The record is a 102-nucleotide RNA from Bacillus smithii, which matches "Purine riboswitch aptamer" in Rfam. Taxonomically the source falls in Bacillus smithii (Bacteria, Bacillati, Bacilli, Bacillaceae). The family's consensus secondary structure is taken from published work.
RNA sequence: AAAUAAUUUGUCGCAUUACGUCGUAUAAUUACGGGGAUAUGGCCCGGAAGUCUCUACCAAGCUGCCGUAAAUAGCUUGACUACGAGGUAAUGGAAUGUAAAC
Numbered sequence: 001a002a003a004u005a006a007u008u009u010g011u012c013g014c015a016u017u018a019c020g021u022c023g024u025a026u027a028a029u030u031a032c033g034g035g036g037a038u039a040u041g042g043c044c045c046g047g048a049a050g051u052c053u054c055u056a057c058c059a060a061g062c063u064g065c066c067g068u069a070a071a072u073a074g075c076u077u078g079a080c081u082a083c084g085a086g087g088u089a090a091u092g093g094a095a096u097g098u099a100a101a102c
Stems, first nucleotide, its partner, number of pairs: 018088002021085005029049002032046004058078007